[Rfam]
RNA: TPP riboswitch aptamer (THI element)
RNA sequence: GUCUUCCGCUAGGGGUGUUGCGGCCUGCAAGGGCCGCGACUGAGAAAGUCCCUUUGAACCUGAUUGAGGUAAUCCUCGCGCAGGGAAGCAAAAGUCCCCACCG
Numbered sequence: 001g002u003c004u005u006c007c008g009c010u011a012g013g014g015g016u017g018u019u020g021c022g023g024c025c026u027g028c029a030a031g032g033g034c035c036g037c038g039a040c041u042g043a044g045a046a047a048g049u050c051c052c053u054u055u056g057a058a059c060c061u062g063a064u065u066g067a068g069g070u071a072a073u074c075c076u077c078g079c080g081c082a083g084g085g086a087a088g089c090a091a092a093a094g095u096c097c098c099c100a101c102c103g
Stems, first nucleotide, its partner, number of pairs: 008089003011053004016047001017040009059084004065078004